[Rfam]
RNA sequence: GCACUGGAUGGGAGUUUUACCGUUAUGUCCCAUUGUUGGAUCUUCAAGGAGAGCGAUGACAGAGAUUCAAACAGUGC
Numbered sequence: 001g002c003a004c005u006g007g008a009u010g011g012g013a014g015u016u017u018u019a020c021c022g023u024u025a026u027g028u029c030c031c032a033u034u035g036u037u038g039g040a041u042c043u044u045c046a047a048g049g050a051g052a053g054c055g056a057u058g059a060c061a062g063a064g065a066u067u068c069a070a071a072c073a074g075u076g077c
Base pairs, nucleotide, nucleotide: 001077002076003075004074005073006072009032010031011030012029037069038068039067040066041065042064043063044062
RNA: CyVA-1 RNA
Organism: Synechocystis sp. PCC 7509